This 46-nucleotide RNA from Desulfonema magnum belongs to the Rfam family "Acido-Lenti-1 RNA". The match comes from Rfam's covariance-model search (39 bits). Lineage of the source: Bacteria > Pseudomonadati > Thermodesulfobacteriota > Desulfobacteria > Desulfonema. Rfam classes the family as a small RNA.
[Rfam]
RNA sequence: GCCGGUAAUAAAUUACCGGCCUAUUAUCAGCCGUCCCUACGGGACU
Numbered sequence: 001g002c003c004g005g006u007a008a009u010a011a012a013u014u015a016c017c018g019g020c021c022u023a024u025u026a027u028c029a030g031c032c033g034u035c036c037c038u039a040c041g042g043g044a045c046u
Stems, first nucleotide, its partner, number of pairs: 001020008033045005